[Rfam]
RNA sequence: CUAUCAACCCACCCCCUGUUGGGAUGGUCGUUGAAAC
Numbered sequence: 001c002u003a004u005c006a007a008c009c010c011a012c013c014c015c016c017u018g019u020u021g022g023g024a025u026g027g028u029c030g031u032u033g034a035a036a037c
Stems, first nucleotide, its partner, number of pairs: 005033004009027002013023003
RNA: CRISPR RNA direct repeat element
Organism: Coleofasciculus sp. FACHB-SPT36